Description: A member of the RNA family "U8 small nucleolar RNA" from Mus spicilegus, 134 nucleotides long. Pairs were carried over by alignment from the consensus structure, which is taken from published work. The literature on the family includes a 2010 paper in Nucleic Acids Res by Hokii et al., "A small nucleolar RNA functions in rRNA processing in Caenorhabditis elegans". A search with the family's covariance model found it, with a score of 54 bits. Its family is annotated with nucleolus and RNA processing in the Gene Ontology. Taxonomically the source falls in Mus (Eukaryota, Chordata, Theria, Muroidea).
RNA sequence: ACAUUAUAUGGGACAAUCUUUACGUGUUCUUCUUUUGGGAAGGUGGAUUAGAGCUUACUGCUUAGGGUUGCCUUAGCCUGUGAUUAUGACUCUGUGAAAUCAGGACUUAGAACAUCCUGAUUCUCUUACCUGAU
Numbered sequence: 001a002c003a004u005u006a007u008a009u010g011g012g013a014c015a016a017u018c019u020u021u022a023c024g025u026g027u028u029c030u031u032c033u034u035u036u037g038g039g040a041a042g043g044u045g046g047a048u049u050a051g052a053g054c055u056u057a058c059u060g061c062u063u064a065g066g067g068u069u070g071c072c073u074u075a076g077c078c079u080g081u082g083a084u085u086a087u088g089a090c091u092c093u094g095u096g097a098a099a100u101c102a103g104g105a106c107u108u109a110g111a112a113c114a115u116c117c118u119g120a121u122u123c124u125c126u127u128a129c130c131u132g133a134u
Stems, first nucleotide, its partner, number of pairs: 025045002028043006075091001078088001081086001096123001098122007